[Rfam]
RNA sequence: GGAGCCUCGAGCCAAUAAAGACUGAUAAAAUUGGCUCAAGAAAAAA
Number, nucleotide and partner (000 for none) at each position: 001g000002g000003a000004g000005c000006c040007u039008c000009g037010a036011g035012c034013c033014a032015a031016u030017a000018a000019a000020g000021a000022c000023u000024g000025a000026u000027a000028a000029a000030a016031u015032u014033g013034g012035c011036u010037c009038a000039a007040g006041a000042a000043a000044a000045a000046a000
A member of the RNA family "Plastid-rpl16 group II-D1 intron" from Passiflora arbelaezii, 46 nucleotides long. The organism belongs to Passiflora, within Eukaryota. The family has 538 seed sequences and 1,446 matches in Rfam 15.1.